[Rfam]
RNA: Mu-gpT-DE RNA
RNA sequence: CCCUGACAGUUACAUAGUGUAACUGACUCUAGCCACGACAGGAGACAAGCAUG
Number, nucleotide and partner (000 for none) at each position: 001c000002c042003c041004u040005g039006a000007c025008a024009g023010u022011u021012a000013c000014a000015u000016a000017g000018u000019g000020u000021a011022a010023c009024u008025g007026a000027c000028u000029c000030u000031a000032g000033c000034c000035a000036c000037g000038a000039c005040a004041g003042g002043a000044g000045a000046c000047a000048a000049g000050c000051a000052u000053g000